RNA sequence: UCCUAGCCCCGAUUGAAACGACAUCCUUUUUGGUUGCGGGCGGAGUAUAAACUGAAAGUUUACGAACGUAGUUCAGUAGCCCGUAACCAAAAAGAUACAGUGGAAAGCAGGAAAUAGC
Numbered sequence: 001u002c003c004u005a006g007c008c009c010c011g012a013u014u015g016a017a018a019c020g021a022c023a024u025c026c027u028u029u030u031u032g033g034u035u036g037c038g039g040g041c042g043g044a045g046u047a048u049a050a051a052c053u054g055a056a057a058g059u060u061u062a063c064g065a066a067c068g069u070a071g072u073u074c075a076g077u078a079g080c081c082c083g084u085a086a087c088c089a090a091a092a093a094g095a096u097a098c099a100g101u102g103g104a105a106a107g108c109a110g111g112a113a114a115u116a117g118c
Base pairs, nucleotide, nucleotide: 009110011108013106014105018101019100023096024095025094029091030090031089032088033087034086035085036084037083038082039081040080041079
Annotation: Flavo-1 RNA: a 118-nucleotide sequence from Chryseobacterium sp. RU37D. It is annotated as a small RNA.